[Rfam]
RNA sequence: CCAGGGGCUUUUUGAACAGCUGAGUGCUUUUAAAGCAAUCAAAUUCCUUUUCCUUUGAAUCAUGCAGCUGUUGAACAAGUUUUUGC
Numbered sequence: 001c002c003a004g005g006g007g008c009u010u011u012u013u014g015a016a017c018a019g020c021u022g023a024g025u026g027c028u029u030u031u032a033a034a035g036c037a038a039u040c041a042a043a044u045u046c047c048u049u050u051u052c053c054u055u056u057g058a059a060u061c062a063u064g065c066a067g068c069u070g071u072u073g074a075a076c077a078a079g080u081u082u083u084u085g086c
Stems, first nucleotide, its partner, number of pairs: 002085009012075002015072008024063003028059003032055002035053001
Dot-bracket structure: .(((((((((.((.((((((((.(((.(((.((.(.................))).))).))).)))))))).)).))))))))).
Shown here is an 86-nucleotide sequence from Dryobates pubescens, a member of the family "mir-1781 microRNA precursor family". The organism belongs to Dryobates, within Eukaryota. The family has 2 seed sequences and 312 matches in Rfam 15.1. The family's consensus secondary structure was predicted with RNAalifold.